RNA sequence: AGCGAUUUUCAGGGUCGGGUGCGUUCGGAAAUUUUACAUCGUAAAUUUCCGCAAUAAUUCCCAACCGGCGGUAUAGCCCGCGACUUCGGUGGAAACACCGGACUGAACCGGUGUAAUUCCGGUGCCGACGGUACAGUCCGGAUGGAAGAAAAUCACG
Dot-bracket structure: ...(((((((......(((........................................))).[[((((((....[[))))...((..............))....(((((.......)))))]])).(((....]]))).......)))))))...
RNA: FMN riboswitch aptamer (RFN element)
Organism: Breznakiella homolactica